[Rfam]
RNA sequence: UGAGAUAGAAUCAUCGUUUGGACAUGCAAUUUUACGCUGAUUCCAUCUCACG
Numbered sequence: 001u002g003a004g005a006u007a008g009a010a011u012c013a014u015c016g017u018u019u020g021g022a023c024a025u026g027c028a029a030u031u032u033u034a035c036g037c038u039g040a041u042u043c044c045a046u047c048u049c050a051c052g
Stems, first nucleotide, its partner, number of pairs: 001050006008043006015036003018029003

This 52-nucleotide RNA sequence from Solanum lycopersicum belongs to the Rfam family "MIR1886 microRNA precursor family". Rfam links the family to the GO terms miRNA-mediated post-transcriptional gene silencing and RISC complex. The family has 4 seed sequences and 1,053 matches in Rfam 15.1. Lineage of the source: Eukaryota > eudicotyledons > Gunneridae > asterids > Solanum subgen. Lycopersicon.